[Rfam]
RNA sequence: UCGGAUCGGUCGUCGCGCUCUCCCGUCCCUCGAAGCGGCGAACGGUCCGGAUGGAACGACACGCCCAUCGGCGGCGCGCCACCUACUAACCCGGGUGGCGCGCC
Numbered sequence: 001u002c003g004g005a006u007c008g009g010u011c012g013u014c015g016c017g018c019u020c021u022c023c024c025g026u027c028c029c030u031c032g033a034a035g036c037g038g039c040g041a042a043c044g045g046u047c048c049g050g051a052u053g054g055a056a057c058g059a060c061a062c063g064c065c066c067a068u069c070g071g072c073g074g075c076g077c078g079c080c081a082c083c084u085a086c087u088a089a090c091c092c093g094g095g096u097g098g099c100g101c102g103c104c
Base pairs, nucleotide, nucleotide: 004047005046006045007044008043010041011040012039013038014037015036016035073104074103075102076101077100078099079098080097081096082095083094084093
RNA: caulobacter sRNA CC1840